Rfam assigns this 84-nucleotide RNA sequence from Acipenser ruthenus to the family "Small nucleolar RNA SNORD103/SNORD85". The literature on the family includes a 2001 paper in EMBO J by Huttenhofer et al., "RNomics: an experimental approach that identifies 201 candidates for novel, small, non-messenger RNAs in mouse". Rfam links the family to the GO terms RNA processing and nucleolus. Rfam classes the family as a C/D-box small nucleolar RNA.
RNA sequence: UCUGGCUGUGAUGACACACUUGCCCUCACUGAGAACGUGGUUCGAUAAUGAGAACUCUUAUGUACUCAAUUGUGCUGAGCCAGA
Numbered sequence: 001u002c003u004g005g006c007u008g009u010g011a012u013g014a015c016a017c018a019c020u021u022g023c024c025c026u027c028a029c030u031g032a033g034a035a036c037g038u039g040g041u042u043c044g045a046u047a048a049u050g051a052g053a054a055c056u057c058u059u060a061u062g063u064a065c066u067c068a069a070u071u072g073u074g075c076u077g078a079g080c081c082a083g084a
Stems, first nucleotide, its partner, number of pairs: 001084006